This 170-nucleotide sequence from Trinickia symbiotica belongs to the Rfam family "FMN riboswitch aptamer (RFN element)". Lineage of the source: Bacteria > Pseudomonadati > Betaproteobacteria > Burkholderiales > Trinickia.
[Rfam]
RNA sequence: ACAUGUUCUCGGGGCGGGGUGCAACUCCCCACCGGCGGUAAUCGUCCUUUUCGGGACGUAGCCCGCGAGCGCUCGGUCUUGCAUGCGAUGAAAGCAUUGCAGCGACGGAGGUCAGCAGACUCGGUGCGAUUCCGGGGCCGACGGUAUAGUCCGGAUGAAAGAGAACAGGA
Numbered sequence: 001a002c003a004u005g006u007u008c009u010c011g012g013g014g015c016g017g018g019g020u021g022c023a024a025c026u027c028c029c030c031a032c033c034g035g036c037g038g039u040a041a042u043c044g045u046c047c048u049u050u051u052c053g054g055g056a057c058g059u060a061g062c063c064c065g066c067g068a069g070c071g072c073u074c075g076g077u078c079u080u081g082c083a084u085g086c087g088a089u090g091a092a093a094g095c096a097u098u099g100c101a102g103c104g105a106c107g108g109a110g111g112u113c114a115g116c117a118g119a120c121u122c123g124g125u126g127c128g129a130u131u132c133c134g135g136g137g138c139c140g141a142c143g144g145u146a147u148a149g150u151c152c153g154g155a156u157g158a159a160a161g162a163g164a165a166c167a168g169g170a
Base pairs, nucleotide, nucleotide: 004167005166006165007164008163009162010161017029018028019027031150032149033140034139035066036065037064038063061138062137069116070115120136121135122134123133124132142153143152144151
Rfam's curators write: The RFN element is a highly conserved domain that is found frequently in the 5'-untranslated regions of prokaryotic mRNAs that encode for flavin mononucleotide (FMN) biosynthesis and transport proteins.